[Rfam]
RNA sequence: UCCUUAAGAGUGCCGAAUCUUAAUAAUAUUUAAGUACGGGGGAACACAUUGUGGGUGAAUCUUACGACUAUUCGUAAGUAGGGUGCCUUCAACCCGAAUCCGUAAGCUAACCUCGGAGGCAAAAUUGAUAAAGGAA
Numbered sequence: 001u002c003c004u005u006a007a008g009a010g011u012g013c014c015g016a017a018u019c020u021u022a023a024u025a026a027u028a029u030u031u032a033a034g035u036a037c038g039g040g041g042g043a044a045c046a047c048a049u050u051g052u053g054g055g056u057g058a059a060u061c062u063u064a065c066g067a068c069u070a071u072u073c074g075u076a077a078g079u080a081g082g083g084u085g086c087c088u089u090c091a092a093c094c095c096g097a098a099u100c101c102g103u104a105a106g107c108u109a110a111c112c113u114c115g116g117a118g119g120c121a122a123a124a125u126u127g128a129u130a131a132a133g134g135a136a
Stems, first nucleotide, its partner, number of pairs: 011121004019034005037115005046052002053101003061078004081095004

The family of this 136-nucleotide sequence from Clostridium acetobutylicum is "c-di-AMP riboswitch aptamer (ydaO/yuaA leader)". The sequence is in the family's curated seed alignment. Taxonomically the source falls in Clostridium acetobutylicum (Bacteria, Clostridia, Eubacteriales, Clostridiaceae).